[Rfam]
RNA sequence: CCUCUUUCGGCAAAGGGCGACAGGGCCUAUAUAGGACCUGCUCGCAAGAGAUAUGGCGAUAAAUUGUCAUCGUAAUAAACCUAUCGGACCCGGGGGCAGUACCCGGCGCCUCCACCAUCUACUCUUCACGAGGGCAGCCAAUGGGGGCGAAACAGGAUCGACGAGGGCGUAAAGGGUGUGCUUUUGCUCGGUGAGGUACCACCGUUAUCGGUCCGAAACUUAUAGUUGCAAAUGACAACAAUAAGGCUCCAGUCGCUCUCGCUGCGUAAGCAGUGCUAGCAUUGGGAAAUUAAGUCCUCCACCCCUAGCCGGGUGACAGGCGGGGUCCGCAGGCACCUGGCAACAGAAGCCUGCACC
Numbered sequence: 001c002c003u004c005u006u007u008c009g010g011c012a013a014a015g016g017g018c019g020a021c022a023g024g025g026c027c028u029a030u031a032u033a034g035g036a037c038c039u040g041c042u043c044g045c046a047a048g049a050g051a052u053a054u055g056g057c058g059a060u061a062a063a064u065u066g067u068c069a070u071c072g073u074a075a076u077a078a079a080c081c082u083a084u085c086g087g088a089c090c091c092g093g094g095g096g097c098a099g100u101a102c103c104c105g106g107c108g109c110c111u112c113c114a115c116c117a118u119c120u121a122c123u124c125u126u127c128a129c130g131a132g133g134g135c136a137g138c139c140a141a142u143g144g145g146g147g148c149g150a151a152a153c154a155g156g157a158u159c160g161a162c163g164a165g166g167g168c169g170u171a172a173a174g175g176g177u178g179u180g181c182u183u184u185u186g187c188u189c190g191g192u193g194a195g196g197u198a199c200c201a202c203c204g205u206u207a208u209c210g211g212u213c214c215g216a217a218a219c220u221u222a223u224a225g226u227u228g229c230a231a232a233u234g235a236c237a238a239c240a241a242u243a244a245g246g247c248u249c250c251a252g253u254c255g256c257u258c259u260c261g262c263u264g265c266g267u268a269a270g271c272a273g274u275g276c277u278a279g280c281a282u283u284g285g286g287a288a289a290u291u292a293a294g295u296c297c298u299c300c301a302c303c304c305c306u307a308g309c310c311g312g313g314u315g316a317c318a319g320g321c322g323g324g325g326u327c328c329g330c331a332g333g334c335a336c337c338u339g340g341c342a343a344c345a346g347a348a349g350c351c352u353g354c355a356c357c
Stems, first nucleotide, its partner, number of pairs: 041050003055188005066181002068178004080167003084164003090106005107149007189204004195214002198212003323338004329354006
The family of this 357-nucleotide sequence from Devosia sp. YR412 is "Alphaproteobacteria transfer-messenger RNA". The literature on the family includes a 1996 paper in RNA by Williams and Bartel, "Phylogenetic analysis of tmRNA secondary structure". By type it is a non-coding RNA gene. Pairs were carried over by alignment from the consensus structure, which is taken from published work. Its Rfam clan is "tRNA clan". About the family: Bacterial tmRNA, also known as 10Sa RNA or SsrA, is named for its dual tRNA and mRNA-like properties.